[Rfam]
RNA sequence: AGUCCCCAGGUUAUCAAAGUCAACGAUUUUUCGUGCUUGCACGAAAGAAACGUUGACCUUGAUAACCGCAAAAUAUGAGGAAGAAGCGAUUUGUGUAACAAAUCUGCGGAUUCCGAAUAUUUUCAGGAGUGCGUAAACUGCGGAGCACUCCGCCUGGGGACG
Numbered sequence: 001a002g003u004c005c006c007c008a009g010g011u012u013a014u015c016a017a018a019g020u021c022a023a024c025g026a027u028u029u030u031u032c033g034u035g036c037u038u039g040c041a042c043g044a045a046a047g048a049a050a051c052g053u054u055g056a057c058c059u060u061g062a063u064a065a066c067c068g069c070a071a072a073a074u075a076u077g078a079g080g081a082a083g084a085a086g087c088g089a090u091u092u093g094u095g096u097a098a099c100a101a102a103u104c105u106g107c108g109g110a111u112u113c114c115g116a117a118u119a120u121u122u123u124c125a126g127g128a129g130u131g132c133g134u135a136a137a138c139u140g141c142g143g144a145g146c147a148c149u150c151c152g153c154c155u156g157g158g159g160a161c162g
Base pairs, nucleotide, nucleotide: 002161003160004159005158006157007156010066011065012064013063016060017059019057020056021055022054023053024052025051027050028049029047030046031044032043033042034041035040070123071122072121073120074119075118076117079114080113081112082111086107087106088104089103090102091101092100126151127150128149129148130147131146132145
The family of this 162-nucleotide RNA sequence from Clostridium sp. CAG:62 is "Clostridiales-1 RNA". It scores 100 bits against the family's covariance model. The source organism's lineage runs through Bacteria, Bacillota, Eubacteriales, Clostridiaceae and Clostridium. Rfam 15.1 lists 1,172 matches to the family in 137 species.